[Rfam]
RNA: Guanidine-I riboswitch aptamer
RNA sequence: AGAGUUGGUGGCUAGGGUUCCGGCGUUUCGACAAGCGUGCUGGUCCGAGAGCUGCCACCGGUUGGGGAGACAUCCCGCCGGGUGCACGGCGGGACAAAAGCCCGGGAGAC
Numbered sequence: 001a002g003a004g005u006u007g008g009u010g011g012c013u014a015g016g017g018u019u020c021c022g023g024c025g026u027u028u029c030g031a032c033a034a035g036c037g038u039g040c041u042g043g044u045c046c047g048a049g050a051g052c053u054g055c056c057a058c059c060g061g062u063u064g065g066g067g068a069g070a071c072a073u074c075c076c077g078c079c080g081g082g083u084g085c086a087c088g089g090c091g092g093g094a095c096a097a098a099a100g101c102c103c104g105g106g107a108g109a110c
Stems, first nucleotide, its partner, number of pairs: 007056006015046002020043002022040001023038006057083003061079001063077004085105001087108001091103003